[Rfam]
RNA sequence: AUAAUGAUACUUCUAACAGUUGAUGCCAGCUCGUCUUAAUAAGGGGUGGAGGUGAAAUUCCUAUGU
Numbered sequence: 001a002u003a004a005u006g007a008u009a010c011u012u013c014u015a016a017c018a019g020u021u022g023a024u025g026c027c028a029g030c031u032c033g034u035c036u037u038a039a040u041a042a043g044g045g046g047u048g049g050a051g052g053u054g055a056a057a058u059u060c061c062u063a064u065g066u
Stems, first nucleotide, its partner, number of pairs: 012063001013025001026049003030045003050062003
The family of this 66-nucleotide RNA is "pemK RNA". Pairs were carried over by alignment from the consensus structure, which is taken from published work. The sequence is in the family's curated seed alignment. The family's RNA type in Rfam is cis-regulatory element.